RNA: mraW RNA
Organism: Microbacterium kyungheense
RNA sequence: CUGACGCCCCAGGCCCCGACUCCCAGCCGCUCCCGCCCUGACACACUUCCCCGGUGCCAGGUCAGAGCGGAUGGGGAUCAGGACCGGGGGACGACGAACA
Numbered sequence: 001c002u003g004a005c006g007c008c009c010c011a012g013g014c015c016c017c018g019a020c021u022c023c024c025a026g027c028c029g030c031u032c033c034c035g036c037c038c039u040g041a042c043a044c045a046c047u048u049c050c051c052c053g054g055u056g057c058c059a060g061g062u063c064a065g066a067g068c069g070g071a072u073g074g075g076g077a078u079c080a081g082g083a084c085c086g087g088g089g090g091a092c093g094a095c096g097a098a099c100a
Stems, first nucleotide, its partner, number of pairs: 010087001012085002015082002018079002021076005027070005033065001035063001037061004042056003